[Rfam]
RNA sequence: UAAUGAAUGUAGCAUGGUACUGUGCACGAAAAUUAAUCUAUGGAUCGACAUGUCUGCCAUCUCUGAGAUCAUUUGAUGAUGAGACGGCCUGGUUUAGAUCCACAUUG
Numbered sequence: 001u002a003a004u005g006a007a008u009g010u011a012g013c014a015u016g017g018u019a020c021u022g023u024g025c026a027c028g029a030a031a032a033u034u035a036a037u038c039u040a041u042g043g044a045u046c047g048a049c050a051u052g053u054c055u056g057c058c059a060u061c062u063c064u065g066a067g068a069u070c071a072u073u074u075g076a077u078g079a080u081g082a083g084a085c086g087g088c089c090u091g092g093u094u095u096a097g098a099u100c101c102a103c104a105u106u107g
Stems, first nucleotide, its partner, number of pairs: 012025004042090002045087002052080003058075001

Small nucleolar RNA snoR100: a 107-nucleotide RNA sequence from Eutrema salsugineum.
A search with the family's covariance model found it, with a score of 75 bits.
The base pairs follow the family's consensus structure, which was predicted with WAR.
It is annotated as an H/ACA-box small nucleolar RNA.